[Rfam]
RNA sequence: CCCAGCGGUAGUCAGCUGUGCAGGCGGCCCGUGCCUGAGCUAGUGUUACUCUGCUGGAAGAGAAAGAGCCGUCUGUGCUCCUGCAGGUUUGGCUGUUUUAGUGACUCCUGCGGUGCAGCACAGGGCAAGCCGUGCCUUCUGAGAGUGGUCUGUGCUCACACAAUGAGGCAGGCCUAGUCUGGGGGCGAACACG
Numbered sequence: 001c002c003c004a005g006c007g008g009u010a011g012u013c014a015g016c017u018g019u020g021c022a023g024g025c026g027g028c029c030c031g032u033g034c035c036u037g038a039g040c041u042a043g044u045g046u047u048a049c050u051c052u053g054c055u056g057g058a059a060g061a062g063a064a065a066g067a068g069c070c071g072u073c074u075g076u077g078c079u080c081c082u083g084c085a086g087g088u089u090u091g092g093c094u095g096u097u098u099u100a101g102u103g104a105c106u107c108c109u110g111c112g113g114u115g116c117a118g119c120a121c122a123g124g125g126c127a128a129g130c131c132g133u134g135c136c137u138u139c140u141g142a143g144a145g146u147g148g149u150c151u152g153u154g155c156u157c158a159c160a161c162a163a164u165g166a167g168g169c170a171g172g173c174c175u176a177g178u179c180u181g182g183g184g185g186c187g188a189a190c191a192c193g
Base pairs, nucleotide, nucleotide: 002057003056004055005054006053007052008051011049012048015044016043017042018041021037022036023035024034025033066130071126072125073124074123075121076120077119078118079117081113082112083111084110085109087107089104092102093101094100133187134186135185136184137183138182139181147174148173149172151170152169153168155167156166157165158164
This 193-nucleotide RNA sequence from Cyprinus carpio belongs to the Rfam family "Small nucleolar RNA SNORA74". The family is grouped with related families in Rfam's "SNORA74 clan". About the family: U19 belongs to the H/ACA class of snoRNAs. snoRNAs bind a number of proteins (including dyskerin, Gar1p and Nop10p in the case of the H/ACA class) to form snoRNP complexes. This class are thought to guide the sites of modification of uridines to pseudouridines by forming direct base pairing interactions with substrate RNAs. Targets may include ribosomal and spliceosomal RNAs but the exact functions of many snoRNAs, including U19, are not confirmed. Co-precipitation of U19 snoRNA with RNase MRP RNA suggests that U19 may be involved in pre-rRNA processing. The base pairs follow the family's consensus structure, which was predicted with PFOLD. On this family, see Ganot et al., Genes Dev 1997: "The family of box ACA small nucleolar RNAs is defined by an evolutionarily conserved secondary structure and ubiquitous sequence elements essential for RNA accumulation". The family has 24 seed sequences and 1,348 matches in Rfam 15.1. Rfam classes the family as an H/ACA-box small nucleolar RNA.